[Rfam]
RNA: Nematode sRNA ceN72-3_ceN74-2
Organism: Caenorhabditis remanei
RNA sequence: CCAUCGGUCCGGAGUUGAUGGGUUCUCUAAUACUUCUGGUUUCCUUGUGAAACACCCCCUCGUUCUGCAGUUCAUUCUGUGGUAAAGACCCCGCGUUCUUCACCGUUCGCAAUCCUAACCCCAUCAACACCAACUUGACCGUUGU
Numbered sequence: 001c002c003a004u005c006g007g008u009c010c011g012g013a014g015u016u017g018a019u020g021g022g023u024u025c026u027c028u029a030a031u032a033c034u035u036c037u038g039g040u041u042u043c044c045u046u047g048u049g050a051a052a053c054a055c056c057c058c059c060u061c062g063u064u065c066u067g068c069a070g071u072u073c074a075u076u077c078u079g080u081g082g083u084a085a086a087g088a089c090c091c092c093g094c095g096u097u098c099u100u101c102a103c104c105g106u107u108c109g110c111a112a113u114c115c116u117a118a119c120c121c122c123a124u125c126a127a128c129a130c131c132a133a134c135u136u137g138a139c140c141g142u143u144g145u
Stems, first nucleotide, its partner, number of pairs: 002144002005141005011131002014128009037054002040051003058082002061079001093110003098105001